The family of this 105-nucleotide sequence from Sphingobium sp. TKS is "Repression of heat shock gene expression (ROSE) element". By type it is an RNA thermoregulator. About the family: This family represents a 5' UTR cis-regulatory element found in heat shock mRNAs and is known as the ROSE (repression of heat shock gene expression) element. The ROSE element is a negative regulator of heat shock gene expression. The secondary structure is thought to be regulated by temperature. This regulation blocks access to the ribosome binding site under normal conditions. The source organism's lineage runs through Bacteria, Pseudomonadati, Alphaproteobacteria, Sphingomonadales and Sphingobium. The family's consensus secondary structure is taken from published work. Gene Ontology terms of the family: regulation of translation and response to temperature stimulus.
[Rfam]
RNA sequence: CCGGACGCCAAUACCGGGUCCGGCUGGACACAGAGGGUGCCGGCUCUCCGUUUCCGGCGCUUCUCAUGCCCAAGUUGCUUCACCAGGAGGAUUUGGAGAUGAGAA
Numbered sequence: 001c002c003g004g005a006c007g008c009c010a011a012u013a014c015c016g017g018g019u020c021c022g023g024c025u026g027g028a029c030a031c032a033g034a035g036g037g038u039g040c041c042g043g044c045u046c047u048c049c050g051u052u053u054c055c056g057g058c059g060c061u062u063c064u065c066a067u068g069c070c071c072a073a074g075u076u077g078c079u080u081c082a083c084c085a086g087g088a089g090g091a092u093u094u095g096g097a098g099a100u101g102a103g104a105a
Base pairs, nucleotide, nucleotide: 001023002022003021004020005019006018008017009016035062036061037060038059039058040057041056042055043054063103064102065101066100067099070096071095072094073093074092075091076090078089079088080087